[Rfam]
RNA sequence: GUGAGGAGAAAGGCAGAUGCGGAGUAUUUCUUUUUAUACCUUUCGAUGACCUGCCCUCGCACCGCAGGUGAGGGGGGCGCCGCAUUAU
Numbered sequence: 001g002u003g004a005g006g007a008g009a010a011a012g013g014c015a016g017a018u019g020c021g022g023a024g025u026a027u028u029u030c031u032u033u034u035u036a037u038a039c040c041u042u043u044c045g046a047u048g049a050c051c052u053g054c055c056c057u058c059g060c061a062c063c064g065c066a067g068g069u070g071a072g073g074g075g076g077g078c079g080c081c082g083c084a085u086u087a088u
Base pairs, nucleotide, nucleotide: 008044009043010042011041012040013039015029016028017027018026019025053078054077055076057073058072061069062068
RNA: GA-cis RNA